[Rfam]
Nucleotides: 223
Stems, first nucleotide, its partner, number of pairs: 005024002008021005029038002049171005055165001060100006069091002101151002107145002114140010155206001157205003161201001173192004212222002
Number, partner (000 for none) and nucleotide at each position: 001000c002000u003000a004000c005024g006023g007000a008021c009020u010019u011018a012017g013000u014000u015000a016000a017012c018011u019010g020009a021008g022000c023006c024005u025000u026000g027000a028000a029038g030037g031000a032000g033000a034000a035000a036000c037030c038029c039000c040000u041000c042000a043000a044000g045000u046000g047000u048000a049171a050170g051169c052168u053167c054000u055165c056000a057000a058000a059000c060100u061099c062098a063097g064096g065095g066000a067000a068000a069091c070090c071000u072000a073000a074000a075000u076000c077000u078000g079000g080000u081000g082000a083000c084000a085000g086000a087000c088000a089000u090070g091069g092000c093000a094000a095065u096064c097063c098062u099061g100060a101151g102150c103000c104000a105000a106000g107145c108144c109000c110000a111000a112000a113000a114140a115139u116138u117137u118136a119135a120134g121133a122132u123131u124000g125000c126000u127000a128000u129000u130000c131123a132122a133121u134120u135119u136118u137117a138116a139115a140114u141000c142000g143000a144108g145107g146000g147000a148000a149000g150102g151101u152000g153000c154000a155206g156000a157205g158204a159203c160000c161201c162000g163000a164000c165055g166000g167053g168052a169051g170050c171049u172000a173192c174191c175190c176189u177000a178000a179000c180000g181000u182000u183000a184000a185000g186000u187000c188000g189176a190175g191174g192173g193000u194000a195000a196000a197000g198000g199000g200000a201161g202000a203159g204158u205157c206155c207000a208000a209000u210000u211000c212222u213221u214000a215000a216000a217000g218000c219000c220000a221213a222212a223000g
This 223-nucleotide sequence from Atlanticothrix silvestris belongs to the Rfam family "Group I catalytic intron". From the family's description: Group I catalytic introns are large self-splicing ribozymes. The match comes from Rfam's covariance-model search (83 bits).